Shown here is a 78-nucleotide sequence from Schistosoma mansoni, a member of the family "mir-3492 microRNA precursor family". Taxonomically the source falls in Schistosoma (Eukaryota, Platyhelminthes, Neodermata, Schistosomatidae). The base pairs follow the family's consensus structure, which was predicted with RNAalifold. The family has 2 seed sequences and 21,496 matches in Rfam 15.1. Gene Ontology terms of the family: RISC complex and miRNA-mediated post-transcriptional gene silencing.

RNA sequence: AGCUUUCUGUAUCAGUGCUAAGAUUUCGUCACAUACCAGACCACAAGGGCUGAUGAGACUCUUGAGAUAAGUGAAGCG
Numbered sequence: 001a002g003c004u005u006u007c008u009g010u011a012u013c014a015g016u017g018c019u020a021a022g023a024u025u026u027c028g029u030c031a032c033a034u035a036c037c038a039g040a041c042c043a044c045a046a047g048g049g050c051u052g053a054u055g056a057g058a059c060u061c062u063u064g065a066g067a068u069a070a071g072u073g074a075a076g077c078g
Base pairs, nucleotide, nucleotide: 002077003076004075005074006073008071010069011068012067013066016064017063021060022059024058025057026056027055028054029053030052